[Rfam]
RNA: Lysine riboswitch aptamer
RNA sequence: CUACGAAGUAGAGGUCGCACGAUUCAAUAGUAACUGUACUGAUGUCCCCAAGCAUAUGAUGUGCAGCGAAAGGGGAGAGUGCCGAAGCAGAUUAUGUGGGAAGUUAUCUGCUGGGCGUAAGAUUAAUAAUCUUAUGACUGUCAUUAUAGACAUGUUUAUGUCAUAUGAUGGAGGGCUACGCAAGGA
Numbered sequence: 001c002u003a004c005g006a007a008g009u010a011g012a013g014g015u016c017g018c019a020c021g022a023u024u025c026a027a028u029a030g031u032a033a034c035u036g037u038a039c040u041g042a043u044g045u046c047c048c049c050a051a052g053c054a055u056a057u058g059a060u061g062u063g064c065a066g067c068g069a070a071a072g073g074g075g076a077g078a079g080u081g082c083c084g085a086a087g088c089a090g091a092u093u094a095u096g097u098g099g100g101a102a103g104u105u106a107u108c109u110g111c112u113g114g115g116c117g118u119a120a121g122a123u124u125a126a127u128a129a130u131c132u133u134a135u136g137a138c139u140g141u142c143a144u145u146a147u148a149g150a151c152a153u154g155u156u157u158a159u160g161u162c163a164u165a166u167g168a169u170g171g172a173g174g175g176c177u178a179c180g181c182a183a184g185g186a
Stems, first nucleotide, its partner, number of pairs: 008179004017082004023076003034066006086112007094104002097101001113139002116136008141171007